The family of this 73-nucleotide RNA from Caenorhabditis remanei is "mir-39 microRNA precursor family". The sequence is in the family's curated seed alignment. Clan: mir-36 clan. Lineage of the source: Eukaryota > Opisthokonta > Metazoa > Nematoda > Caenorhabditis.

[Rfam]
RNA sequence: AGAGCCCAACUGUUUCUUUCCCCGGUAAUAAACUUCAACACGACUAUCACCGGGUAUGAAUCAGUUAGGCUCU
Numbered sequence: 001a002g003a004g005c006c007c008a009a010c011u012g013u014u015u016c017u018u019u020c021c022c023c024g025g026u027a028a029u030a031a032a033c034u035u036c037a038a039c040a041c042g043a044c045u046a047u048c049a050c051c052g053g054g055u056a057u058g059a060a061u062c063a064g065u066u067a068g069g070c071u072c073u
Stems, first nucleotide, its partner, number of pairs: 001073006008066005014060003020054002023052004028047003033042001